Rfam assigns this 73-nucleotide RNA sequence from Sphingomonas oleivorans to the family "Makes More Granules Regulator RNA (mmgR)". The family has 87 seed sequences and 1,791 matches in Rfam 15.1. A search with the family's covariance model found it, with a score of 42 bits. The family's RNA type in Rfam is small RNA. Gene Ontology terms of the family: DNA-templated transcription, termination, response to nitrogen compound and protein binding.

[Rfam]
RNA sequence: AGGAUGGGCCUUUCAGGCAUUCUCUCCUGACCCUUCGGCCGGCCCAGCAAGACCGGCCUUUUUUUUGGCUCGC
Number, nucleotide and partner (000 for none) at each position: 001a000002g000003g000004a000005u000006g000007g000008g018009c017010c016011u015012u000013u000014c000015a011016g010017g009018c008019a000020u000021u000022c000023u000024c000025u000026c000027c000028u000029g000030a000031c000032c000033c000034u000035u000036c000037g058038g057039c056040c055041g054042g053043c000044c051045c000046a000047g000048c000049a000050a000051g044052a000053c042054c041055g040056g039057c038058c037059u000060u000061u000062u000063u000064u000065u000066u000067g000068g000069c000070u000071c000072g000073c000